The record is a 224-nucleotide RNA from Streptomyces sp. MMG1533, which matches "Actinobacteria sRNA Ms_IGR-5" in Rfam.
[Rfam]
RNA sequence: ACACGAGAAGGGAGGUGGUUCGGCAGAUGUACAAGAACCGGACGCGUGAGGUGGCUGCGGGCUAGCGGCCCGUCACCACACCGAGUGCGGUGCCGGACCAGUGCGUGAAAGACGCGCGCAGCCGGCCCAAUCCCAGGCAGUCACCCGACCCGCGAGCUCGCCGGUACGUCCGGCCGGCUUCUUCGCCGUCAGGCGGAGGGACCCGAGCUCGCGGGUCGUCUGCG
Numbered sequence: 001a002c003a004c005g006a007g008a009a010g011g012g013a014g015g016u017g018g019u020u021c022g023g024c025a026g027a028u029g030u031a032c033a034a035g036a037a038c039c040g041g042a043c044g045c046g047u048g049a050g051g052u053g054g055c056u057g058c059g060g061g062c063u064a065g066c067g068g069c070c071c072g073u074c075a076c077c078a079c080a081c082c083g084a085g086u087g088c089g090g091u092g093c094c095g096g097a098c099c100a101g102u103g104c105g106u107g108a109a110a111g112a113c114g115c116g117c118g119c120a121g122c123c124g125g126c127c128c129a130a131u132c133c134c135a136g137g138c139a140g141u142c143a144c145c146c147g148a149c150c151c152g153c154g155a156g157c158u159c160g161c162c163g164g165u166a167c168g169u170c171c172g173g174c175c176g177g178c179u180u181c182u183u184c185g186c187c188g189u190c191a192g193g194c195g196g197a198g199g200g201a202c203c204c205g206a207g208c209u210c211g212c213g214g215g216u217c218g219u220c221u222g223c224g
Base pairs, nucleotide, nucleotide: 015058016057017056018055019054060127061126062125063124065122066121068119069118071116072113073112146218147217148216149215150214151213152212153211154210155209156208157207158206160178161177162176163175164174165173

A reference for the family is Li et al. (2013), "Identification of small RNAs in Mycobacterium smegmatis using heterologous Hfq", RNA.
By type it is a small RNA.